[Rfam]
RNA: Glycine riboswitch aptamer
RNA sequence: AAUUCAGGAUCGGGAGAAUCCGGGCGGAGGGCAACUUCCGGCUCCGGUGCCGAAGGAGCAACCGCCCCGGUAAACUCUCAGGCGCAAGGGACCGUUCCUGAACA
Numbered sequence: 001a002a003u004u005c006a007g008g009a010u011c012g013g014g015a016g017a018a019u020c021c022g023g024g025c026g027g028a029g030g031g032c033a034a035c036u037u038c039c040g041g042c043u044c045c046g047g048u049g050c051c052g053a054a055g056g057a058g059c060a061a062c063c064g065c066c067c068c069g070g071u072a073a074a075c076u077c078u079c080a081g082g083c084g085c086a087a088g089g090g091a092c093c094g095u096u097c098c099u100g101a102a103c104a
Base pairs, nucleotide, nucleotide: 006099007098008097009096011094012093013092020047021046022045023044049083050082051081052079053078056077057076058075062070063069